[Rfam]
RNA sequence: CUGCUAUCCGCUAACCGGUGAAGCCGUGUCGCGGAAGGUUUUCCUGCAUCAAGAUGGGUGAAGCAUCCAUAUAGGUGAAGCG
Numbered sequence: 001c002u003g004c005u006a007u008c009c010g011c012u013a014a015c016c017g018g019u020g021a022a023g024c025c026g027u028g029u030c031g032c033g034g035a036a037g038g039u040u041u042u043c044c045u046g047c048a049u050c051a052a053g054a055u056g057g058g059u060g061a062a063g064c065a066u067c068c069a070u071a072u073a074g075g076u077g078a079a080g081c082g
Base pairs, nucleotide, nucleotide: 002082003081004080007035008034009033010032011031016026017025018024019023037044038043047077048076049075050074054070055069056068057067058066059065060064
A member of the RNA family "SucA RNA motif" from Paenalcaligenes hominis, 82 nucleotides long.
Taxonomically the source falls in Paenalcaligenes (Bacteria, Pseudomonadota, Betaproteobacteria, Burkholderiales).
For this family Rfam cites "Identification of 22 candidate structured RNAs in bacteria using the CMfinder comparative genomics pipeline" (Weinberg et al., Nucleic Acids Res, 2007).
It is annotated as a cis-regulatory element.
Gene Ontology term of the family: regulation of translation.